Shown here is a 66-nucleotide RNA sequence from Bacteroidales bacterium KHT7, a member of the family "Bacteroidetes FopS (family of paralogous sRNAs)". It scores 74 bits against the family's covariance model. The RNA-binding protein RbpB and BTncRNA_FopS sRNA are involved in the post-transcription regulation of polysaccharide utilisation loci (PUL). By type it is a small RNA. The base pairs follow the family's consensus structure, which is taken from published work. Gene Ontology term of the family: sRNA-mediated gene silencing. NCBI's taxonomy places the organism under Bacteria, Pseudomonadati, Bacteroidota, Bacteroidia, Bacteroidales.

RNA sequence: GUGUUUUUCAUAGUAUUAGAUUUAAGGUUAACAAGGUUGGGUGCAGGCGUGCACCCUUUUUUCGUU
Number, nucleotide and partner (000 for none) at each position: 001g000002u000003g000004u000005u000006u000007u000008u000009c000010a000011u000012a000013g000014u000015a000016u000017u000018a000019g000020a000021u000022u000023u000024a000025a000026g000027g000028u000029u000030a000031a000032c000033a000034a000035g000036g000037u000038u000039g056040g055041g054042u053043g052044c051045a050046g000047g000048c000049g000050u045051g044052c043053a042054c041055c040056c039057u000058u000059u000060u000061u000062u000063c000064g000065u000066u000